[Rfam]
RNA sequence: UGCCCCACCUGCCGGGCUAAAAAUGCAGGGUGUCAGGUGAUGGCGACCACCUAAAACGCUUA
Numbered sequence: 001u002g003c004c005c006c007a008c009c010u011g012c013c014g015g016g017c018u019a020a021a022a023a024u025g026c027a028g029g030g031u032g033u034c035a036g037g038u039g040a041u042g043g044c045g046a047c048c049a050c051c052u053a054a055a056a057c058g059c060u061u062a
Stems, first nucleotide, its partner, number of pairs: 003015002009028004036051004